[Rfam]
RNA sequence: CGUGGCCUAAUGGAUAAGGCGUUUGAUUAGAAAUCAAACGAUUGUGGGUUCGAGUCCCACCG
Numbered sequence: 001c002g003u004g005g006c007c008u009a010a011u012g013g014a015u016a017a018g019g020c021g022u023u024u025g026a027u028u029a030g031a032a033a034u035c036a037a038a039c040g041a042u043u044g045u046g047g048g049u050u051c052g053a054g055u056c057c058c059a060c061c062g
Stems, first nucleotide, its partner, number of pairs: 001062002005020004022038005044060005
Shown here is a 62-nucleotide RNA sequence from Morus notabilis, a member of the family "tRNA". Rfam classes the family as a transfer RNA. The match comes from Rfam's covariance-model search (50 bits). Rfam's curators write: Transfer RNA (tRNA) molecules are approximately 80 nucleotides in length. Their secondary structure includes four short double-helical elements and three loops (D, anti-codon, and T loops). The family's consensus secondary structure is taken from published work.